Background
Shown here is a 136-nucleotide sequence from Myotis davidii, a member of the family "Small nucleolar RNA SNORA43". NCBI's taxonomy places the organism under Eukaryota, Eumetazoa, Euteleostomi, Boreoeutheria, Myotis. The family's RNA type in Rfam is H/ACA-box small nucleolar RNA. Rfam's curators write: ACA43 is a member of the H/ACA class of snoRNA that guide the sites of modification of uridines to pseudouridines. It scores 128 bits against the family's covariance model. The base pairs follow the family's consensus structure, which was predicted with RNAfold.
[Rfam]
RNA sequence: CAGGUGCUGGACCUGCUGGCACCACAGAUGCGGCUGCCUUGCUGCACCUGUGGCAUUGGGGUACAGAAGAAGUGGCUAUUUUUACGCGCAGUGCUCAGAACAGUGAGCACUAAGAAUGAUUUGUAGCCUGACAUUC
Numbered sequence: 001c002a003g004g005u006g007c008u009g010g011a012c013c014u015g016c017u018g019g020c021a022c023c024a025c026a027g028a029u030g031c032g033g034c035u036g037c038c039u040u041g042c043u044g045c046a047c048c049u050g051u052g053g054c055a056u057u058g059g060g061g062u063a064c065a066g067a068a069g070a071a072g073u074g075g076c077u078a079u080u081u082u083u084a085c086g087c088g089c090a091g092u093g094c095u096c097a098g099a100a101c102a103g104u105g106a107g108c109a110c111u112a113a114g115a116a117u118g119a120u121u122u123g124u125a126g127c128c129u130g131a132c133a134u135u136c
Stems, first nucleotide, its partner, number of pairs: 004062002007059004024051004074128003082119003087114001092109006
Dot-bracket structure: ...((.((((.............((((....................))))....)))).))...........(((.....(((..(....((((((......))))))....)..)))......)))........